This 75-nucleotide RNA from Populus trichocarpa belongs to the Rfam family "Plastid-ycf2 5UTR RNA".
The match comes from Rfam's covariance-model search (68 bits).
Plastid ycf2 is a non-coding RNA (ncRNA) recognised in plastids. It was found in the prime untranslated region (5UTR) of ycf2 genes, it presents a tRNA-like motif which suggests it can be involved in mRNA maturation, particularly involved in defining the precise 5' end of the transcript.
The family has 204 seed sequences and 3,521 matches in Rfam 15.1.

RNA sequence: GUAUAUUCAGUAGAAGUCGAAACUAUGAAUUUACCAAUUAUGUGUUGGGCGCUUUAACCAAUCAACCAUGAAUAC
Numbered sequence: 001g002u003a004u005a006u007u008c009a010g011u012a013g014a015a016g017u018c019g020a021a022a023c024u025a026u027g028a029a030u031u032u033a034c035c036a037a038u039u040a041u042g043u044g045u046u047g048g049g050c051g052c053u054u055u056a057a058c059c060a061a062u063c064a065a066c067c068a069u070g071a072a073u074a075c
Base pairs, nucleotide, nucleotide: 004074005073006072007071008070010026011025012024013023040069041068042067044066045065046064047063048062051059